Description: L31-Actinobacteria ribosomal protein leader: a 68-nucleotide sequence from Mycolicibacterium wolinskyi. The organism belongs to Mycobacterium (subgen. Mycolicibacterium), within Bacteria. The family's consensus secondary structure is taken from published work. For this family Rfam cites "Discovery of 20 novel ribosomal leader candidates in bacteria and archaea" (Eckert and Weinberg, BMC Microbiol, 2020). A search with the family's covariance model found it, with a score of 37 bits.
RNA sequence: UCGGUCCCGGUUCACGUCCGCGCACGUGAGGAGCGAAAUAGCUCCUGGCACUUCGGGCGACCCGGGCC
Numbered sequence: 001u002c003g004g005u006c007c008c009g010g011u012u013c014a015c016g017u018c019c020g021c022g023c024a025c026g027u028g029a030g031g032a033g034c035g036a037a038a039u040a041g042c043u044c045c046u047g048g049c050a051c052u053u054c055g056g057g058c059g060a061c062c063c064g065g066g067c068c
Base pairs, nucleotide, nucleotide: 003068004067005066007065008064009063010062015059016058017057018056019055020054